[Rfam]
RNA sequence: UUCUUUCCAAACGAUUUGAAGUUGCAGAACCUGAAAUGGCAGAUAGGCGCAGAUGAGUGAAUUCCAAUAAAUACAGACAGACUAUGCGAUUGGUGUGCGCGAAUAUCGCCUUUGCAGCUUCAAAUAGGAAGAA
Numbered sequence: 001u002u003c004u005u006u007c008c009a010a011a012c013g014a015u016u017u018g019a020a021g022u023u024g025c026a027g028a029a030c031c032u033g034a035a036a037u038g039g040c041a042g043a044u045a046g047g048c049g050c051a052g053a054u055g056a057g058u059g060a061a062u063u064c065c066a067a068u069a070a071a072u073a074c075a076g077a078c079a080g081a082c083u084a085u086g087c088g089a090u091u092g093g094u095g096u097g098c099g100c101g102a103a104u105a106u107c108g109c110c111u112u113u114g115c116a117g118c119u120u121c122a123a124a125u126a127g128g129a130a131g132a133a
Base pairs, nucleotide, nucleotide: 002132003131004130005129006128007127014125015124016123017122018121019120020119021118022117023116024115025114026113027112028111038110039109040108042107043106044105045104047100048099049098050097051096053094054093056091057090058089

Source information
Vibrio RNA AS5: a 133-nucleotide sequence from Vibrio cholerae. The literature on the family includes a 2009 paper in Nucleic Acids Res by Liu et al., "Experimental discovery of sRNAs in Vibrio cholerae by direct cloning, 5S/tRNA depletion and parallel sequencing". The base pairs follow the family's consensus structure, which was predicted with RNAfold. About the family: Identified by direct cloning an parallel sequencing experiments with 5S/tRNA depletion. Confirmed by Northern blot.